RNA sequence: GUGGGAUAUGGGGACAUGAGUCCCGUCACGUUCGGUGGGAAAAUUGUUGGUUCGAUGUGUGCUGUGGCCGGAGUGCUCACCAUAGCACUGCCUGUACCUGUCAUCGUGUCCAAC
Numbered sequence: 001g002u003g004g005g006a007u008a009u010g011g012g013g014a015c016a017u018g019a020g021u022c023c024c025g026u027c028a029c030g031u032u033c034g035g036u037g038g039g040a041a042a043a044u045u046g047u048u049g050g051u052u053c054g055a056u057g058u059g060u061g062c063u064g065u066g067g068c069c070g071g072a073g074u075g076c077u078c079a080c081c082a083u084a085g086c087a088c089u090g091c092c093u094g095u096a097c098c099u100g101u102c103a104u105c106g107u108g109u110c111c112a113a114c
Stems, first nucleotide, its partner, number of pairs: 001114002004111002007108005013102004018097001020095002037077002040074001049063003

The family of this 114-nucleotide RNA sequence from Bagarius yarrelli is "Potassium channel RNA editing signal". Taxonomically the source falls in Bagarius (Eukaryota, Teleostei, Ostariophysi, Siluriformes).